[Rfam]
RNA sequence: CCAGAGGUAAUGAGGACCUGGUUGGAAAAGAGUUUCUGAGCGCUUCUCUGAGGAUCUUUGAAACCACCUGAUCUAUUCUUA
Numbered sequence: 001c002c003a004g005a006g007g008u009a010a011u012g013a014g015g016a017c018c019u020g021g022u023u024g025g026a027a028a029a030g031a032g033u034u035u036c037u038g039a040g041c042g043c044u045u046c047u048c049u050g051a052g053g054a055u056c057u058u059u060g061a062a063a064c065c066a067c068c069u070g071a072u073c074u075a076u077u078c079u080u081a
Stems, first nucleotide, its partner, number of pairs: 003080002006077001007073001016072001018070001020068003024064001028058004033053004038048003